This 165-nucleotide RNA from Tupaia belangeri belongs to the Rfam family "U1 spliceosomal RNA".
RNA sequence: AUAUUCACGUGGCAGGGGAGAUGCCAUGAUCACUCAGGUGGUUUUCCCAGGGUGAAGCUUAUCCACUGCACUCCGACCUGCUGACCCCUGCAAUUUCCCCAAAUGUGGGAUACUCCACCACGCAAUUUGUGGUACUGGGGGACAGUGUUUGUUUGCUUUUUUUUU
Numbered sequence: 001a002u003a004u005u006c007a008c009g010u011g012g013c014a015g016g017g018g019a020g021a022u023g024c025c026a027u028g029a030u031c032a033c034u035c036a037g038g039u040g041g042u043u044u045u046c047c048c049a050g051g052g053u054g055a056a057g058c059u060u061a062u063c064c065a066c067u068g069c070a071c072u073c074c075g076a077c078c079u080g081c082u083g084a085c086c087c088c089u090g091c092a093a094u095u096u097c098c099c100c101a102a103a104u105g106u107g108g109g110a111u112a113c114u115c116c117a118c119c120a121c122g123c124a125a126u127u128u129g130u131g132g133u134a135c136u137g138g139g140g141g142a143c144a145g146u147g148u149u150u151g152u153u154u155g156c157u158u159u160u161u162u163u164u165u
Stems, first nucleotide, its partner, number of pairs: 012121001015118001016048006023042005049089004054085001056082003064075001093114001094112001095110002098108002137164006144157004
It is annotated as a spliceosomal small nuclear RNA. U1 is a small nuclear RNA (snRNA) component of the spliceosome (involved in pre-mRNA splicing). Its 5' end forms complementary base pairs with the 5' splice junction, thus defining the 5' donor site of an intron. There are significant differences in sequence and secondary structure between metazoan and yeast U1 snRNAs, the latter being much longer (568 nucleotides as compared to 164 nucleotides in human). For this family Rfam cites "Two functionally distinct steps mediate high affinity binding of U1A protein to U1 hairpin II RNA" (Katsamba et al., J Biol Chem, 2001).